Rfam assigns this 91-nucleotide sequence from Actinomyces sp. oral taxon 448 to the family "SAM riboswitch aptamer (S box leader)". The match comes from Rfam's covariance-model search (47 bits). Pairs were carried over by alignment from the consensus structure, which is taken from published work.
[Rfam]
RNA sequence: CGACCAUCUAGAGCAACUGAGAGACCUGGCUCGCGGACGUUGCAGCAACCCCCGCUUGCGGUGCGGGUGCUUCCGCCAGGACCGAUGGAGG
Dot-bracket structure: (..(((((....(((((...(((..[[[[)))......)))))((((.(((.((.......)).)))))))...(]]]]...))))))..)
Numbered sequence: 001c002g003a004c005c006a007u008c009u010a011g012a013g014c015a016a017c018u019g020a021g022a023g024a025c026c027u028g029g030c031u032c033g034c035g036g037a038c039g040u041u042g043c044a045g046c047a048a049c050c051c052c053c054g055c056u057u058g059c060g061g062u063g064c065g066g067g068u069g070c071u072u073c074c075g076c077c078a079g080g081a082c083c084g085a086u087g088g089a090g091g
Stems, first nucleotide, its partner, number of pairs: 001091001004088005013043005021032003026079004044071004049067003053063002075083001